The record is a 123-nucleotide RNA from Aureibacillus halotolerans, which matches "epsC RNA" in Rfam.
The organism belongs to Aureibacillus, within Bacteria.
RNA sequence: CGGACAUGUCUCCUCGCCGUUAUCCACGGAGGCACUCGGCUAUGCUGUGGGACUCCUUCAAGGAAGCAGUCCUUAGACGCGUUCGUUGUCAAAAGCAUGGUGUGAGGUGGGGUUUAAUGCCCC
Number, nucleotide and partner (000 for none) at each position: 001c019002g018003g017004a000005c000006a000007u034008g033009u032010c031011u030012c029013c028014u000015c000016g000017c003018c002019g001020u000021u000022a000023u000024c000025c000026a000027c000028g013029g012030a011031g010032g009033c008034a007035c106036u105037c104038g103039g101040c100041u099042a098043u097044g096045c095046u094047g000048u000049g073050g072051g071052a070053c069054u064055c063056c062057u000058u000059c000060a000061a000062g056063g055064a054065a000066g000067c000068a000069g053070u052071c051072c050073u049074u000075a000076g090077a089078c088079g087080c000081g000082u000083u000084c000085g000086u000087u079088g078089u077090c076091a000092a000093a000094a046095g045096c044097a043098u042099g041100g040101u039102g000103u038104g037105a036106g035107g000108u000109g123110g122111g121112g120113u119114u000115u000116a000117a000118u000119g113120c112121c111122c110123c109

About this RNA
Rfam classes the family as a cis-regulatory element.